Rfam assigns this 94-nucleotide sequence from Desulfitobacterium metallireducens to the family "Selenocysteine transfer RNA".

RNA sequence: GGGGAUGAGUGGUGGCUGGUGCUGCCCCCGGACUUCAAAUCCGCGUGCCGGGACGUAGAACGUUCCGGGGUGUGUUCGAUUCGCACGCAUCCCC
Numbered sequence: 001g002g003g004g005a006u007g008a009g010u011g012g013u014g015g016c017u018g019g020u021g022c023u024g025c026c027c028c029c030g031g032a033c034u035u036c037a038a039a040u041c042c043g044c045g046u047g048c049c050g051g052g053a054c055g056u057a058g059a060a061c062g063u064u065c066c067g068g069g070g071u072g073u074g075u076u077c078g079a080u081u082c083g084c085a086c087g088c089a090u091c092c093c094c
Stems, first nucleotide, its partner, number of pairs: 001094007009086001011026006028045001029043004048068005071085004
Lineage of the source: Bacteria > Bacillati > Eubacteriales > Desulfitobacterium > Desulfitobacterium metallireducens. It scores 68 bits against the family's covariance model. Rfam links the family to the GO term triplet codon-amino acid adaptor activity.